Shown here is a 104-nucleotide sequence from Schnuerera ultunensis, a member of the family "PyrR binding site".
RNA sequence: GUAAUCUUUAAAUCAGUCCAGAGAGACUGGCAAGAUUGUAAUUAGUAUGGAUAAUUAUGCCUAUUUGCAUAAAAGGUCUUGCUGUUAGCGAGACCUUUUUUAUG
Numbered sequence: 001g002u003a004a005u006c007u008u009u010a011a012a013u014c015a016g017u018c019c020a021g022a023g024a025g026a027c028u029g030g031c032a033a034g035a036u037u038g039u040a041a042u043u044a045g046u047a048u049g050g051a052u053a054a055u056u057a058u059g060c061c062u063a064u065u066u067g068c069a070u071a072a073a074a075g076g077u078c079u080u081g082c083u084g085u086u087a088g089c090g091a092g093a094c095c096u097u098u099u100u101u102a103u104g
Stems, first nucleotide, its partner, number of pairs: 003037006013030006038068004043063003046059005071099013
Dot-bracket structure: ..((((((....((((((......)))))).))))))((((.((((((((....))))).))).))))..(((((((((((((...))))))))))))).....